This 211-nucleotide RNA sequence from Afipia sp. Root123D2 belongs to the Rfam family "Bradyrhizobiaceae sRNA BjrC174". It is annotated as a small RNA.

[Rfam]
RNA sequence: CUCACGUCGAAGUUAAACAAAUCAUAAUGCUGCCAGAAUUCGGACAAUCCGCCGCCGCUCUGGAUUGCGAUCAAAUCCAUACUGCGUUGGCCCGGUCCUUUCGGUACCGGAUUCCUCAGCCCCCAGCCCCCCGGGGUCGGCAGGACCGGGUCUUAAUUUCCCGCAGUGAGAUAAUCCCCAAUCCUGCGGGCCAGCGUCAGUUGGCCCUUUU
Numbered sequence: 001c002u003c004a005c006g007u008c009g010a011a012g013u014u015a016a017a018c019a020a021a022u023c024a025u026a027a028u029g030c031u032g033c034c035a036g037a038a039u040u041c042g043g044a045c046a047a048u049c050c051g052c053c054g055c056c057g058c059u060c061u062g063g064a065u066u067g068c069g070a071u072c073a074a075a076u077c078c079a080u081a082c083u084g085c086g087u088u089g090g091c092c093c094g095g096u097c098c099u100u101u102c103g104g105u106a107c108c109g110g111a112u113u114c115c116u117c118a119g120c121c122c123c124c125a126g127c128c129c130c131c132c133g134g135g136g137u138c139g140g141c142a143g144g145a146c147c148g149g150g151u152c153u154u155a156a157u158u159u160c161c162c163g164c165a166g167u168g169a170g171a172u173a174a175u176c177c178c179c180a181a182u183c184c185u186g187c188g189g190g191c192c193a194g195c196g197u198c199a200g201u202u203g204g205c206c207c208u209u210u211u
Stems, first nucleotide, its partner, number of pairs: 036172001081167006089152011102139004107134004119127002188207008
It scores 137 bits against the family's covariance model. For this family Rfam cites "Small RNAs of the Bradyrhizobium/Rhodopseudomonas lineage and their analysis" (Madhugiri et al., RNA Biol, 2012).